[Rfam]
RNA: mir-129 microRNA precursor family
Organism: Oncorhynchus kisutch
RNA sequence: ACGGGUCUUUUUGCGGUCUGGGCUUGCUGUUCAUAAGGCCAGGAAGCCCUUACCCCAAAAAGUAUCUG
Numbered sequence: 001a002c003g004g005g006u007c008u009u010u011u012u013g014c015g016g017u018c019u020g021g022g023c024u025u026g027c028u029g030u031u032c033a034u035a036a037g038g039c040c041a042g043g044a045a046g047c048c049c050u051u052a053c054c055c056c057a058a059a060a061a062g063u064a065u066c067u068g
Stems, first nucleotide, its partner, number of pairs: 007062007015054003020049004025044001027042002